A member of the RNA family "Mammalian CPEB3 ribozyme" from Crocodylus porosus, 80 nucleotides long. The base pairs follow the family's consensus structure, which is taken from published work.
[Rfam]
RNA sequence: AGAGGUUGAAAGUUUGAGGCCAUAGCAGAAAUGCACAUGGCACAGCCAUGUCAGAUUUCAACAACUCUGUGAAUUCUGCU
Numbered sequence: 001a002g003a004g005g006u007u008g009a010a011a012g013u014u015u016g017a018g019g020c021c022a023u024a025g026c027a028g029a030a031a032u033g034c035a036c037a038u039g040g041c042a043c044a045g046c047c048a049u050g051u052c053a054g055a056u057u058u059c060a061a062c063a064a065c066u067c068u069g070u071g072a073a074u075u076c077u078g079c080u
Stems, first nucleotide, its partner, number of pairs: 013048001018047003024080007032042002052069004057064002